[Rfam]
RNA sequence: UUUGGAAAAUGAUGCGAGAUAAGUCAGAGGUUGUUUCUGAGAAGCAGUAGCUCUUUACUCUGCUUUUGCUGAAUAAUUUGCACGUCAGUCUGAUUCCAAA
Numbered sequence: 001u002u003u004g005g006a007a008a009a010u011g012a013u014g015c016g017a018g019a020u021a022a023g024u025c026a027g028a029g030g031u032u033g034u035u036u037c038u039g040a041g042a043a044g045c046a047g048u049a050g051c052u053c054u055u056u057a058c059u060c061u062g063c064u065u066u067u068g069c070u071g072a073a074u075a076a077u078u079u080g081c082a083c084g085u086c087a088g089u090c091u092g093a094u095u096c097c098a099a100a
Stems, first nucleotide, its partner, number of pairs: 001100007

Description: Shown here is a 100-nucleotide sequence from Cocos nucifera, a member of the family "Small nucleolar RNA Z122". By type it is a C/D-box small nucleolar RNA. The literature on the family includes a 2003 paper in Nucleic Acids Res by Chen et al., "The high diversity of snoRNAs in plants: identification and comparative study of 120 snoRNA genes from Oryza sativa". Pairs were carried over by alignment from the consensus structure, which was predicted with PFOLD. Taxonomically the source falls in Cocos (Eukaryota, Liliopsida, Petrosaviidae, Attaleinae).